Nucleotides: 109
Base pairs, nucleotide, nucleotide: 001022002021003020004019005018006017008016009015069107070106071105072104073103074102076100077099078098079097080096081095082094084093085092086091
Number, partner (000 for none) and nucleotide at each position: 001022c002021c003020g004019g005018c006017u007000g008016c009015c010000a011000c012000u013000c014000c015009g016008g017006g018005g019004c020003c021002g022001g023000c024000g025000g026000c027000g028000a029000u030000c031000g032000g033000u034000u035000g036000g037000g038000c039000g040000c041000c042000a043000a044000c045000a046000g047000c048000g049000c050000c051000c052000g053000g054000c055000g056000u057000c058000c059000g060000c061000c062000g063000u064000g065000a066000a067000g068000u069107c070106u071105u072104g073103u074102a075000u076100c077099c078098a079097u080096g081095u082094u083000g084093c085092u086091c087000a088000a089000a090000g091086g092085a093084g094082g095081a096080u097079g098078u099077g100076g101000c102074u103073a104072u105071g106070a107069g108000c109000a